[Rfam]
RNA: Lysine riboswitch aptamer
Organism: Clostridioides difficile
RNA sequence: UAGAAGGGUAGAGGCGCAAUAAUCUAUCAGUACUAAUAAGGAGUUAAGCACAGAGAGUUAUUAGGAAAGGAGAUAUUGCCGAAGUUUUAUAAUCGAUGCUUUAAGAUUAUAUUGCUGGGGGUACAUAGAAAAUAUGUACAACUGUCACAGGUUUAUUUGUGGUGAGCUAUCAUUUAA
Numbered sequence: 001u002a003g004a005a006g007g008g009u010a011g012a013g014g015c016g017c018a019a020u021a022a023u024c025u026a027u028c029a030g031u032a033c034u035a036a037u038a039a040g041g042a043g044u045u046a047a048g049c050a051c052a053g054a055g056a057g058u059u060a061u062u063a064g065g066a067a068a069g070g071a072g073a074u075a076u077u078g079c080c081g082a083a084g085u086u087u088u089a090u091a092a093u094c095g096a097u098g099c100u101u102u103a104a105g106a107u108u109a110u111a112u113u114g115c116u117g118g119g120g121g122u123a124c125a126u127a128g129a130a131a132a133u134a135u136g137u138a139c140a141a142c143u144g145u146c147a148c149a150g151g152u153u154u155a156u157u158u159g160u161g162g163u164g165a166g167c168u169a170u171c172a173u174u175u176a177a
Base pairs, nucleotide, nucleotide: 007171008170009169010168011167016079017078018077019076020075021074023073024072025071033064034063035062036061037060038059039058083116084115085114088111089110090109091108092107093106094105117143118142121139122138123137124136125135126134127133145162146161147160148159149158150157151156